[Rfam]
Background:
Shown here is a 137-nucleotide sequence from Synaphobranchus kaupii, a member of the family "U11 spliceosomal RNA". Pairs were carried over by alignment from the consensus structure, which is taken from published work. Rfam links the family to the GO terms pre-mRNA 5'-splice site binding, U11 snRNP and mRNA 5'-splice site recognition. The organism belongs to Synaphobranchus, within Eukaryota. A search with the family's covariance model found it, with a score of 100 bits. Clan: U1 clan.
RNA sequence: AAAAAGGGCGUGUACUUUGUCUGGUACAGGGAAGGGGUAGGAAACUGCUCCUUUUCUGCGGAAUCGACAUCAAGAGAUUUCGGACGCACAAUUUUUGUCAAUCUGGGCUGCCGAUGCUCGAAUGUCUUGGCGCCCUA
Numbered sequence: 001a002a003a004a005a006g007g008g009c010g011u012g013u014a015c016u017u018u019g020u021c022u023g024g025u026a027c028a029g030g031g032a033a034g035g036g037g038u039a040g041g042a043a044a045c046u047g048c049u050c051c052u053u054u055u056c057u058g059c060g061g062a063a064u065c066g067a068c069a070u071c072a073a074g075a076g077a078u079u080u081c082g083g084a085c086g087c088a089c090a091a092u093u094u095u096u097g098u099c100a101a102u103c104u105g106g107g108c109u110g111c112c113g114a115u116g117c118u119c120g121a122a123u124g125u126c127u128u129g130g131c132g133c134c135c136u137a
Stems, first nucleotide, its partner, number of pairs: 008087004013026004027058012059082007105135004110131005116126001118124001